[Rfam]
RNA sequence: CGCGAGGAGGCGGUGGGGCGCUGACCUCCUGAAAGAACCGGGGAAAGAACUACCCGCCCUCCCUCCCGCCUUCGUCCGAAGGCUCCGGUCACUCGUCCGAGUGACCGGCUUGCAGUGGGGGGAUACGGGCCGUUACGUUCGCCGCGACAACCGCAGACAAAGACGGCCCCCGGCCAGGAUUGGCGUCCCGACCGAAGGCCUGACCGAUCAGGAAGAGACACCUUCCCG
Numbered sequence: 001c002g003c004g005a006g007g008a009g010g011c012g013g014u015g016g017g018g019c020g021c022u023g024a025c026c027u028c029c030u031g032a033a034a035g036a037a038c039c040g041g042g043g044a045a046a047g048a049a050c051u052a053c054c055c056g057c058c059c060u061c062c063c064u065c066c067c068g069c070c071u072u073c074g075u076c077c078g079a080a081g082g083c084u085c086c087g088g089u090c091a092c093u094c095g096u097c098c099g100a101g102u103g104a105c106c107g108g109c110u111u112g113c114a115g116u117g118g119g120g121g122g123a124u125a126c127g128g129g130c131c132g133u134u135a136c137g138u139u140c141g142c143c144g145c146g147a148c149a150a151c152c153g154c155a156g157a158c159a160a161a162g163a164c165g166g167c168c169c170c171c172g173g174c175c176a177g178g179a180u181u182g183g184c185g186u187c188c189c190g191a192c193c194g195a196a197g198g199c200c201u202g203a204c205c206g207a208u209c210a211g212g213a214a215g216a217g218a219c220a221c222c223u224u225c226c227c228g
Base pairs, nucleotide, nucleotide: 007208010205016077017076018075019074089104090103091102092101093100094099118143119142121140122139165200166199167198168197171194172193173192177188178187179186211226212225213224214223215222